RNA sequence: CGGGAUAUGGCGCAGCUUGGUAGCGCACUCGCUUUGGGAGCGAGGGGUCGUGGGUUCGAAUCCCGCUAUCCCGA
Numbered sequence: 001c002g003g004g005a006u007a008u009g010g011c012g013c014a015g016c017u018u019g020g021u022a023g024c025g026c027a028c029u030c031g032c033u034u035u036g037g038g039a040g041c042g043a044g045g046g047g048u049c050g051u052g053g054g055u056u057c058g059a060a061u062c063c064c065g066c067u068a069u070c071c072c073g074a
Stems, first nucleotide, its partner, number of pairs: 001073007010026004028044005050066005
RNA: tRNA
Organism: Corynebacterium bovis